This 74-nucleotide RNA sequence from Medicago truncatula belongs to the Rfam family "MIR5272 microRNA precursor family". The match comes from Rfam's covariance-model search (66 bits). Lineage of the source: Eukaryota > Embryophyta > Euphyllophyta > Hologalegina > Medicago.
RNA sequence: UUGAUCAUAGAUUGAUUUAUGUUUGGAUACACUUAUAAAUAAGUGAUUUUCAUGAGUUUGUGUUGUUUGGAUAG
Numbered sequence: 001u002u003g004a005u006c007a008u009a010g011a012u013u014g015a016u017u018u019a020u021g022u023u024u025g026g027a028u029a030c031a032c033u034u035a036u037a038a039a040u041a042a043g044u045g046a047u048u049u050u051c052a053u054g055a056g057u058u059u060g061u062g063u064u065g066u067u068u069g070g071a072u073a074g
Stems, first nucleotide, its partner, number of pairs: 011061002014058005021053002025049004030045005
Dot-bracket structure: ..........((.(((((..((..((((.(((((......)))))))))..))))))).)).............